[Rfam]
RNA: Eukaryotic small subunit ribosomal RNA, nucleotides 2236 to 2829
RNA sequence: GAUGGCUUAGCCAGAUAUCGUAUCUGGUGUACACCGCUUGUACAGAGAACAUCGCCCCUACUGGGCGAUCGAUUCUGUGGCGGCCUCUGUCCGGGAGGCUGCUGAAACGCAUGCAAAGUGGUGGGCCCUUUCGCGGGGCUUUUGGUACAUGCUGUCCGCUCCGGGCCAUGGAGUCGUGAGUUACGCUGUGAUGCCCUUGAAUCUAGGGGUAGUAAAAUCGAGUCUGGUGGCAAGGACCCCAGGCAACAUCCUUAUUCUCGUCGGCGAGGCCUCUUGGUGGCCGAGCCGGAGUCUUGCCGCGCAGGCACCAAGAUUCAGAGACUAAACGAGGGUGGGGAUCUCCCUGUGAGGGUGAUCCUUCCAAUGUAGUCCCACCGCUGAAGCUGACGCUUCGGACAUGGUUGUAGAUGUUCUGGGCCGCACGGUAUGUGUUCACUCCCUACCUUUUGGCCCGAAUCAUUGCUAACGUUUUUUCUAGCGCGCUACACUGACAGAGACAACGAGUUCAUCUCCUUGGCCGGAAGGUCUGGGUAAUCUUGUUAAACUCUGUCGUGCUGGGGAUAGAGCAUUGCAAUUAUUGCUCUUCAACGAGGA
Dot-bracket structure: ...(((..((......(..............................................................................................................................................................................................................................................................................................................................................................................................................................................................................................................((..((((....))))..)).....).......))..)))......(....((((((..........))))))....).....